[Rfam]
Streptomyces sRNA 4677: a 217-nucleotide RNA sequence from Streptomyces sp. Ncost-T10-10d. Rfam classes the family as a small RNA. The pairing is the family consensus, mapped onto this sequence. Taxonomically the source falls in Streptomyces (Bacteria, Actinomycetota, Actinomycetes, Streptomycetaceae). Located in the intergenic region between anti-sigma factor SCO4677 gene and a putative regulatory protein gene SCO4676. scr4677 expression requires the SCO4677 activity and scr4677 sRNA itself seem to affect the levels of the SCO4676-associated transcripts.
RNA sequence: GGACCCGGUGAGUCACGGACCUCCCCAAAGAACCUGGGGAAAGAACUACCUACCCUCCCCGCCUCUCCCAACUCGUCACUCACACGGGUGACUUGGUUGCAUAUGCGGGGUGGGGCCGGUUACGUUCGCCGCGACAACCUCGCACACAAAGACGGCCCCCGGCCGGGACGGCAAUCCCGAUCGAAGGCCUGACCACCCAGGAAGUAGACCCUUCCCG
Numbered sequence: 001g002g003a004c005c006c007g008g009u010g011a012g013u014c015a016c017g018g019a020c021c022u023c024c025c026c027a028a029a030g031a032a033c034c035u036g037g038g039g040a041a042a043g044a045a046c047u048a049c050c051u052a053c054c055c056u057c058c059c060c061g062c063c064u065c066u067c068c069c070a071a072c073u074c075g076u077c078a079c080u081c082a083c084a085c086g087g088g089u090g091a092c093u094u095g096g097u098u099g100c101a102u103a104u105g106c107g108g109g110g111u112g113g114g115g116c117c118g119g120u121u122a123c124g125u126u127c128g129c130c131g132c133g134a135c136a137a138c139c140u141c142g143c144a145c146a147c148a149a150a151g152a153c154g155g156c157c158c159c160c161g162g163c164c165g166g167g168a169c170g171g172c173a174a175u176c177c178c179g180a181u182c183g184a185a186g187g188c189c190u191g192a193c194c195a196c197c198c199a200g201g202a203a204g205u206a207g208a209c210c211c212u213u214c215c216c217g
Stems, first nucleotide, its partner, number of pairs: 007197004076091006096130001098128002154189004160183002165178004200215005